[Rfam]
RNA sequence: UACUUGAACAAUCUUCGAUUCUGACGGUAUAAUGUGAAAGUCAGCGAUGACUAUGGUAAUAAACACUAUCUAUAAUAGGUAUUUUGGACUCGGGGGCAGUACCCGACGCCUCCACCACAUUUAUUCGGGGGCGAAACAGCUUCGACAGAUGCUCAAAAAGGUAGACACUUUACUCAGUUUGGUCCGGCUGUAAUAGGCUAAAAAUAAAUAAAUGCAAACUUGAACAAAGUUGUAGCAAACGAUAAUUGGGUACCUACUGCUGCUAUGGCGGCCUAAGUACAAGGUUAUCGAAGCGGUGUGGGACUACCGGGCAACAGAAGUGUCCCAU
Numbered sequence: 001u002a003c004u005u006g007a008a009c010a011a012u013c014u015u016c017g018a019u020u021c022u023g024a025c026g027g028u029a030u031a032a033u034g035u036g037a038a039a040g041u042c043a044g045c046g047a048u049g050a051c052u053a054u055g056g057u058a059a060u061a062a063a064c065a066c067u068a069u070c071u072a073u074a075a076u077a078g079g080u081a082u083u084u085u086g087g088a089c090u091c092g093g094g095g096g097c098a099g100u101a102c103c104c105g106a107c108g109c110c111u112c113c114a115c116c117a118c119a120u121u122u123a124u125u126c127g128g129g130g131g132c133g134a135a136a137c138a139g140c141u142u143c144g145a146c147a148g149a150u151g152c153u154c155a156a157a158a159a160g161g162u163a164g165a166c167a168c169u170u171u172a173c174u175c176a177g178u179u180u181g182g183u184c185c186g187g188c189u190g191u192a193a194u195a196g197g198c199u200a201a202a203a204a205u206a207a208a209u210a211a212a213u214g215c216a217a218a219c220u221u222g223a224a225c226a227a228a229g230u231u232g233u234a235g236c237a238a239a240c241g242a243u244a245a246u247u248g249g250g251u252a253c254c255u256a257c258u259g260c261u262g263c264u265a266u267g268g269c270g271g272c273c274u275a276a277g278u279a280c281a282a283g284g285u286u287a288u289c290g291a292a293g294c295g296g297u298g299u300g301g302g303a304c305u306a307c308c309g310g311g312c313a314a315c316a317g318a319a320g321u322g323u324c325c326c327a328u
Base pairs, nucleotide, nucleotide: 040051041050042049043048055174056173057172058171059170066164067163068162069161070160071159080151081150082149084148085147086146090106091105092104093103094102107133108132109131110130111129112128113127175190176189177188178187180201182199185197294309295308296307297306300326301325302324303323304322
Description
Alphaproteobacteria transfer-messenger RNA: a 328-nucleotide RNA from Rickettsiales endosymbiont of Peranema trichophorum. Rfam describes the family as follows. Bacterial tmRNA, also known as 10Sa RNA or SsrA, is named for its dual tRNA and mRNA-like properties. Its role is to liberate the mRNA from a stalled ribosome. To accomplish this part of the tmRNA is used as a reading frame that ends in a translation stop signal.